[Rfam]
RNA sequence: ACGUCGGAGCCGCCGAACCUGCCUCGCAGGACCGGGGACCCAGCACCGGCGCACAGCGCCCAGGGGUGAAUCCGGUGUUCGCACCGGUAGGGCGAUCUUCCCCGCCCGAACCCGUCAGCUAACCCGGUAGGCGGUCAAGGGAGAGAGG
Numbered sequence: 001a002c003g004u005c006g007g008a009g010c011c012g013c014c015g016a017a018c019c020u021g022c023c024u025c026g027c028a029g030g031a032c033c034g035g036g037g038a039c040c041c042a043g044c045a046c047c048g049g050c051g052c053a054c055a056g057c058g059c060c061c062a063g064g065g066g067u068g069a070a071u072c073c074g075g076u077g078u079u080c081g082c083a084c085c086g087g088u089a090g091g092g093c094g095a096u097c098u099u100c101c102c103c104g105c106c107c108g109a110a111c112c113c114g115u116c117a118g119c120u121a122a123c124c125c126g127g128u129a130g131g132c133g134g135u136c137a138a139g140g141g142a143g144a145g146a147g148g
Stems, first nucleotide, its partner, number of pairs: 011133004018030003031128006041063001064113003072087004090107004
The record is a 148-nucleotide sequence from Acidothermus cellulolyticus, which matches "c-di-AMP riboswitch aptamer (ydaO/yuaA leader)" in Rfam. The source organism's lineage runs through Bacteria, Bacillati, Actinomycetota, Acidothermus and Acidothermus cellulolyticus. It is one of the family's seed sequences.